[Rfam]
RNA sequence: UCCUUCACAGUCCUCCGGCUCUUCUUUUCCGAAAGGAAUGUCUUUCAUAGACCCCUCGACAAGGGCUGGGAGGCCCCAGUACGCCGCUCGCGACUCUGCAACAGGGCUUCGUGCUUGCUGUAAUUGGAUCCACUGGGACCUCGAGUCGUCAGUAUCAGACGACCCAGUCCGGCUGAGGGAAGACGGGUCGGAACUUAACCCUAAGCAUCACC
Numbered sequence: 001u002c003c004u005u006c007a008c009a010g011u012c013c014u015c016c017g018g019c020u021c022u023u024c025u026u027u028u029c030c031g032a033a034a035g036g037a038a039u040g041u042c043u044u045u046c047a048u049a050g051a052c053c054c055c056u057c058g059a060c061a062a063g064g065g066c067u068g069g070g071a072g073g074c075c076c077c078a079g080u081a082c083g084c085c086g087c088u089c090g091c092g093a094c095u096c097u098g099c100a101a102c103a104g105g106g107c108u109u110c111g112u113g114c115u116u117g118c119u120g121u122a123a124u125u126g127g128a129u130c131c132a133c134u135g136g137g138a139c140c141u142c143g144a145g146u147c148g149u150c151a152g153u154a155u156c157a158g159a160c161g162a163c164c165c166a167g168u169c170c171g172g173c174u175g176a177g178g179g180a181a182g183a184c185g186g187g188u189c190g191g192a193a194c195u196u197a198a199c200c201c202u203a204a205g206c207a208u209c210a211c212c
Base pairs, nucleotide, nucleotide: 009195010194011193015191016190017189018188